Overview:
Shown here is a 167-nucleotide RNA from Spirochaeta isovalerica, a member of the family "Group II catalytic intron D1-D4-3". From the family's description: Group II introns are found in rRNA, tRNA and mRNA of organelles in fungi, plants and protists, and also in mRNA in bacteria.
RNA sequence: AUUCUCGCGAGGGAAUGUCUGGAGGAAGCCCGAGUACAAAACCGGGAGCCCAUGCACAAGAAUGUGAUAGAAGGCCCAGUUCCGGAGGCGAGUCAGCCAAUGAUGACGAUGCCCCGUGGGUGAGGAAUAGGGUAAAUCACAGGGUUGUCCGGGGACAGUAUAUCGUC
Number, nucleotide and partner (000 for none) at each position: 001a016002u015003u014004c013005u012006c011007g000008c000009g000010a000011g006012g005013g004014a003015a002016u001017g000018u000019c000020u000021g000022g000023a000024g000025g000026a000027a000028g167029c000030c165031c000032g163033a000034g000035u000036a159037c158038a000039a000040a000041a000042c152043c151044g150045g149046g148047a146048g145049c144050c143051c142052a000053u000054g000055c000056a000057c000058a000059a000060g000061a000062a000063u141064g140065u139066g138067a137068u136069a000070g000071a000072a000073g000074g133075c132076c131077c000078a000079g128080u127081u126082c125083c124084g000085g000086a000087g113088g112089c111090g000091a000092g107093u106094c105095a104096g000097c000098c000099a000100a000101u000102g000103a000104u095105g094106a093107c092108g000109a000110u000111g089112c088113c087114c000115c000116g000117u000118g000119g000120g000121u000122g000123a000124g083125g082126a081127a080128u079129a000130g000131g076132g075133u074134a000135a000136a068137u067138c066139a065140c064141a063142g051143g050144g049145u048146u047147g000148u046149c045150c044151g043152g042153g000154g000155a000156c000157a000158g037159u036160a000161u000162a000163u032164c000165g030166u000167c028